[Rfam]
This 235-nucleotide RNA from Dictyoglomus turgidum belongs to the Rfam family "Dictyoglomi-1 RNA". Pairs were carried over by alignment from the consensus structure, which is taken from published work.
Nucleotides: 235
Stems, first nucleotide, its partner, number of pairs: 001235010012225004017220002021216002027209002031204005038198007048188004058180009070112005079102003083099005115167006126157013
Number, partner (000 for none) and nucleotide at each position: 001235u002234g003233c004232c005231a006230c007229a008228g009227g010226c011000g012225u013224c014223a015222a016000g017220g018219g019000g020000u021216c022215c023000a024000a025000a026000a027209g028208g029000u030000a031204c032203u033202c034201c035200u036000g037000a038198u039197g040196u041195a042194c043193c044192u045000u046000g047000g048188c049187a050186c051185u052000g053000a054000g055000u056000a057000a058180a059179g060178u061177c062176u063175u064174g065173g066172g067000u068000a069000g070112c071111u072110g073109g074108g075000g076000a077000a078000a079102a080101g081100u082000g083099g084098a085097g086096g087095a088000g089000c090000a091000a092000g093000a094000c095087u096086c097085c098084u099083u100081a101080c102079u103000g104000a105000g106000u107000a108074c109073u110072u111071a112070g113000g114000g115167u116166u117165u118164a119163g120162a121000g122000a123000g124000u125000a126157g127156u128155a129154g130153g131152g132151g133150u134149g135148u136147u137146g138145g139000a140000g141000a142000a143000a144000c145138c146137u147136g148135g149134u150133a151132c152131u153130c154129c155128u156127a157126c158000g159000a160000a161000a162120u163119c164118u165117g166116a167115a168000a169000a170000a171000u172066c173065c174064u175063g176062a177061g178060g179059c180058u181000g182000a183000a184000a185051g186050g187049u188048g189000a190000g191000a192044g193043g194042g195041u196040a197039c198038a199000g200035g201034g202033g203032a204031g205000u206000u207000u208028c209027c210000a211000a212000g213000u214000a215022g216021g217000a218000u219018c220017u221000g222015u223014u224013g225012a226010g227009c228008c229007u230006g231005u232004g233003g234002c235001a